[Rfam]
RNA sequence: GCCGCGGUAGCUCAGUGGUAGAGCGCACCCUUGGUAAGGGUGAGGUCGAGAGUUCAAUUCUCUCUCGUGGCA
Numbered sequence: 001g002c003c004g005c006g007g008u009a010g011c012u013c014a015g016u017g018g019u020a021g022a023g024c025g026c027a028c029c030c031u032u033g034g035u036a037a038g039g040g041u042g043a044g045g046u047c048g049a050g051a052g053u054u055c056a057a058u059u060c061u062c063u064c065u066c067g068u069g070g071c072a
Stems, first nucleotide, its partner, number of pairs: 001071007010024004026042005048064005
The family of this 72-nucleotide sequence from Altererythrobacter xiamenensis is "tRNA". NCBI's taxonomy places the organism under Bacteria, Pseudomonadati, Pseudomonadota, Sphingomonadales, Altererythrobacter. It scores 69 bits against the family's covariance model. Rfam classes the family as a transfer RNA. Its family is annotated with triplet codon-amino acid adaptor activity in the Gene Ontology.